RNA sequence: CACAAAAAUAAAGAGCCUUGAAUACUAGAAGAAAAGCACCUAGACCUAACAAGAUUAAGUGAAUACCAAAAUUGUGGUCAUUUUAUUUCGAUCUUUCCA
Numbered sequence: 001c002a003c004a005a006a007a008a009u010a011a012a013g014a015g016c017c018u019u020g021a022a023u024a025c026u027a028g029a030a031g032a033a034a035a036g037c038a039c040c041u042a043g044a045c046c047u048a049a050c051a052a053g054a055u056u057a058a059g060u061g062a063a064u065a066c067c068a069a070a071a072u073u074g075u076g077g078u079c080a081u082u083u084u085a086u087u088u089c090g091a092u093c094u095u096u097c098c099a
Stems, first nucleotide, its partner, number of pairs: 058096002061093002066090001068088003
The record is a 99-nucleotide sequence from Nicotiana attenuata, which matches "Antisense RNA which regulates isiA expression" in Rfam. The match comes from Rfam's covariance-model search (91 bits). Rfam 15.1 lists 3,397 matches to the family in 659 species.